The record is a 100-nucleotide RNA from Alligator mississippiensis, which matches "Small nucleolar RNA U6-53/MBII-28" in Rfam. Its family is annotated with RNA processing and nucleolus in the Gene Ontology. The family's RNA type in Rfam is C/D-box small nucleolar RNA. The literature on the family includes a 2001 paper in EMBO J by Huttenhofer et al., "RNomics: an experimental approach that identifies 201 candidates for novel, small, non-messenger RNAs in mouse".

RNA sequence: UGCCUGUGAUGACUCGCCAUGCUAAUACCGACCUCUGGCAAGGCACGUGUCUCUGCUCUAGGGGCAUGAGUUAAAAGUCUUCUUUCAAGGUCUGAGGCAC
Numbered sequence: 001u002g003c004c005u006g007u008g009a010u011g012a013c014u015c016g017c018c019a020u021g022c023u024a025a026u027a028c029c030g031a032c033c034u035c036u037g038g039c040a041a042g043g044c045a046c047g048u049g050u051c052u053c054u055g056c057u058c059u060a061g062g063g064g065c066a067u068g069a070g071u072u073a074a075a076a077g078u079c080u081u082c083u084u085u086c087a088a089g090g091u092c093u094g095a096g097g098c099a100c
Stems, first nucleotide, its partner, number of pairs: 001099004039055002042052002
Dot-bracket structure: ((((..................................((.((.......)).))........................................)))).